[Rfam]
RNA sequence: CCACCGAAAAGGUAAACCUCGGGUGACCGGGGGGCACAAAGCCAUCGGUCCGACGCAGAUGUUUAAAAGAGUCGGAUGGCCGGGCUGUCGAA
Numbered sequence: 001c002c003a004c005c006g007a008a009a010a011g012g013u014a015a016a017c018c019u020c021g022g023g024u025g026a027c028c029g030g031g032g033g034g035c036a037c038a039a040a041g042c043c044a045u046c047g048g049u050c051c052g053a054c055g056c057a058g059a060u061g062u063u064u065a066a067a068a069g070a071g072u073c074g075g076a077u078g079g080c081c082g083g084g085c086u087g088u089c090g091a092a
Stems, first nucleotide, its partner, number of pairs: 012037002017032006040086004045082001047080001048077007